[Rfam]
RNA sequence: AAGACCUUUAAGAACAAGUACAGAGAUGCUUGCAAGGUCGCAGGAAAGCCUCCCUAAUUAUGUAGUUUUUUAGGUGAGGUGUACCCCUUUGCGAUUUUGCAAAGGGGUUUUUCUU
Numbered sequence: 001a002a003g004a005c006c007u008u009u010a011a012g013a014a015c016a017a018g019u020a021c022a023g024a025g026a027u028g029c030u031u032g033c034a035a036g037g038u039c040g041c042a043g044g045a046a047a048g049c050c051u052c053c054c055u056a057a058u059u060a061u062g063u064a065g066u067u068u069u070u071u072a073g074g075u076g077a078g079g080u081g082u083a084c085c086c087c088u089u090u091g092c093g094a095u096u097u098u099g100c101a102a103a104g105g106g107g108u109u110u111u112u113c114u115u
Stems, first nucleotide, its partner, number of pairs: 003039006015032006048080005053074005060067001081110001083108011

About this RNA: Shown here is a 115-nucleotide RNA from Gracilibacillus halotolerans, a member of the family "PyrR binding site". A search with the family's covariance model found it, with a score of 64 bits. Pairs were carried over by alignment from the consensus structure, which is taken from published work.